[Rfam]
RNA sequence: AUCCUUUCCCCAUGUUCGUCGGCGUUGCCGACACAUGCCCAGGCAGCCGAGACCUUCAAGGCUGCAAGUGCGGGAAACCGCACAGGUCGUUUCAUUCCAAGGACGCGUCCGCGUCCAUCAACGCCACCCACAAGGGACCUCUCCCUUGCGGGC
Numbered sequence: 001a002u003c004c005u006u007u008c009c010c011c012a013u014g015u016u017c018g019u020c021g022g023c024g025u026u027g028c029c030g031a032c033a034c035a036u037g038c039c040c041a042g043g044c045a046g047c048c049g050a051g052a053c054c055u056u057c058a059a060g061g062c063u064g065c066a067a068g069u070g071c072g073g074g075a076a077a078c079c080g081c082a083c084a085g086g087u088c089g090u091u092u093c094a095u096u097c098c099a100a101g102g103a104c105g106c107g108u109c110c111g112c113g114u115c116c117a118u119c120a121a122c123g124c125c126a127c128c129c130a131c132a133a134g135g136g137a138c139c140u141c142u143c144c145c146u147u148g149c150g151g152g153c
Base pairs, nucleotide, nucleotide: 011037012036013035014034015033018032019031020030021029022028023027043065044064045063046062047061048060051088052087053086054085068083069082070081071080072079073078123153124152125151131148132147133146134145135144136143137142
The family of this 153-nucleotide RNA from Xanthomonas campestris is "radC RNA". The base pairs follow the family's consensus structure, which is taken from published work. Rfam 15.1 lists 500 matches to the family in 142 species.